[Rfam]
RNA sequence: CUCUCUUUGCAUCCUCGCGACUAAUGACAAUCCUGUCCUGCGUUCUUCACAGAGAAAGGUUUCUCAUUAGCCGCGCGAACCUCUGCAACGAAAGAUCACACAGUGCAACAAUACAUGACUUUGGCCCGGAUUGCUGCCAGCCAUUGGAAAAAAGGGGCCACAAAGGCCCCUUUUC
Numbered sequence: 001c002u003c004u005c006u007u008u009g010c011a012u013c014c015u016c017g018c019g020a021c022u023a024a025u026g027a028c029a030a031u032c033c034u035g036u037c038c039u040g041c042g043u044u045c046u047u048c049a050c051a052g053a054g055a056a057a058g059g060u061u062u063c064u065c066a067u068u069a070g071c072c073g074c075g076c077g078a079a080c081c082u083c084u085g086c087a088a089c090g091a092a093a094g095a096u097c098a099c100a101c102a103g104u105g106c107a108a109c110a111a112u113a114c115a116u117g118a119c120u121u122u123g124g125c126c127c128g129g130a131u132u133g134c135u136g137c138c139a140g141c142c143a144u145u146g147g148a149a150a151a152a153a154g155g156g157g158c159c160a161c162a163a164a165g166g167c168c169c170c171u172u173u174u175c
Stems, first nucleotide, its partner, number of pairs: 001094002004091002009086003016077004021070007101128001154170006
Dot-bracket structure: ((.((...(((....((((.(((((((....................................)))))))...))))......)))...)).))......(..........................).........................((((((.....)))))).....
Description:
The record is a 175-nucleotide sequence from Enterobacterales bacterium CwR94, which matches "SraG RNA" in Rfam. Rfam's curators write: This RNA was discovered in E. coli during a large scale screen. Evidence was found for specific cleavage of this RNA. Rfam links the family to the GO terms mRNA binding and sRNA-mediated gene silencing. A reference for the family is Argaman et al. (2001), "Novel small RNA-encoding genes in the intergenic regions of Escherichia coli", Curr Biol. The family's consensus secondary structure was predicted with PFOLD.